[Rfam]
RNA sequence: GGAUGAAGAUGAUGAGUAGAAUUUUUGUGUGAUGGUGAAUUCCACCUGAUCAAUUUAAUGUUUCUCACUUCGCUACGUUCUUUCUGAUUCGUCC
Numbered sequence: 001g002g003a004u005g006a007a008g009a010u011g012a013u014g015a016g017u018a019g020a021a022u023u024u025u026u027g028u029g030u031g032a033u034g035g036u037g038a039a040u041u042c043c044a045c046c047u048g049a050u051c052a053a054u055u056u057a058a059u060g061u062u063u064c065u066c067a068c069u070u071c072g073c074u075a076c077g078u079u080c081u082u083u084c085u086g087a088u089u090c091g092u093c094c
Stems, first nucleotide, its partner, number of pairs: 004091004
Rfam assigns this 94-nucleotide RNA from Salvia splendens to the family "Small nucleolar RNA R32/R81/Z41". Rfam classes the family as a C/D-box small nucleolar RNA. On this family, see Barneche et al., J Mol Biol 2001: "Identification of 66 box C/D snoRNAs in Arabidopsis thaliana: extensive gene duplications generated multiple isoforms predicting new ribosomal RNA 2'-O-methylation sites". Its family is annotated with nucleolus and RNA processing in the Gene Ontology. Pairs were carried over by alignment from the consensus structure, which was predicted with PFOLD. The organism belongs to core Calosphace, within Eukaryota.